Rfam assigns this 298-nucleotide sequence from Lonchura striata to the family "Metazoan signal recognition particle RNA".
The base pairs follow the family's consensus structure, which is taken from published work.
About the family: The signal recognition particle (SRP) is a universally conserved ribonucleoprotein. It is involved in the co-translational targeting of proteins to membranes. The eukaryotic SRP consists of a 300-nucleotide 7S RNA and six proteins: SRPs 72, 68, 54, 19, 14, and 9. Archaeal SRP consists of a 7S RNA and homologues of the eukaryotic SRP19 and SRP54 proteins. Eukaryotic and archaeal 7S RNAs have very similar secondary structures, as represented by this family. Eight helical elements fold into the Alu and S domains, separated by a long linker region. The Alu domain is thought to mediate the peptide chain elongation retardation function of the SRP. The universally conserved helix which interacts with the SRP54 M domain mediates signal sequence recognition. In eukaryotes and archaea, the SRP19-helix 6 complex is thought to be involved in SRP assembly and stabilises helix 8 for SRP54 binding. The Signal Recognition Particle Database (SRPDB) provides compilations of SRP components, with phylogenetic data and structural illustrations. Many sequences below the threshold for this family are clearly closely related, but are most likely to be SRP RNA derived pseudogenes. The human genome in particular is known to contain a large amount of SRP RNA related sequence, including Alu repeats. While the threshold of this family is set high so as to minimise the number of hits to such regions, it is likely that some remain.
It is annotated as a non-coding RNA gene.
RNA sequence: GCCGGGCGCGGUGGCUUGUGCCUGUAAUCCAAACUGCGGGAGGCUGAGCCCGACGGAUCGCUUGAGCCCAGGAGUUCUGGGCUGCCGUGCGCUGUGCCGAGCGGGCGUCCAAGCUAAGGCCGCCAUCAAUAUGGUGACCCGCGGGGAGCUGCGGGACACCAGGUUGACUAAGGAGGGGUGAACCGGCCCAGGUCGGAGACGGAGCAGGUCAAAGCUCCCGUGGCGGUCAGUAGCGGGAUCGCGCCUGUGAAUAGCCACGCCAGCGUAGCCCGGGUGGCAGGACGGGACCCAGCCUCUU
Numbered sequence: 001g002c003c004g005g006g007c008g009c010g011g012u013g014g015c016u017u018g019u020g021c022c023u024g025u026a027a028u029c030c031a032a033a034c035u036g037c038g039g040g041a042g043g044c045u046g047a048g049c050c051c052g053a054c055g056g057a058u059c060g061c062u063u064g065a066g067c068c069c070a071g072g073a074g075u076u077c078u079g080g081g082c083u084g085c086c087g088u089g090c091g092c093u094g095u096g097c098c099g100a101g102c103g104g105g106c107g108u109c110c111a112a113g114c115u116a117a118g119g120c121c122g123c124c125a126u127c128a129a130u131a132u133g134g135u136g137a138c139c140c141g142c143g144g145g146g147a148g149c150u151g152c153g154g155g156a157c158a159c160c161a162g163g164u165u166g167a168c169u170a171a172g173g174a175g176g177g178g179u180g181a182a183c184c185g186g187c188c189c190a191g192g193u194c195g196g197a198g199a200c201g202g203a204g205c206a207g208g209u210c211a212a213a214g215c216u217c218c219c220g221u222g223g224c225g226g227u228c229a230g231u232a233g234c235g236g237g238a239u240c241g242c243g244c245c246u247g248u249g250a251a252u253a254g255c256c257a258c259g260c261c262a263g264c265g266u267a268g269c270c271c272g273g274g275u276g277g278c279a280g281g282a283c284g285g286g287a288c289c290c291a292g293c294c295u296c297u298u
Stems, first nucleotide, its partner, number of pairs: 001044003004023008028041003046296003050292001052290001058285003062281002066275004071270002077268003081264004086259004091255005097249001101248008109237002113234004118228009127166004132161005138155007168172001175218005185210004193202003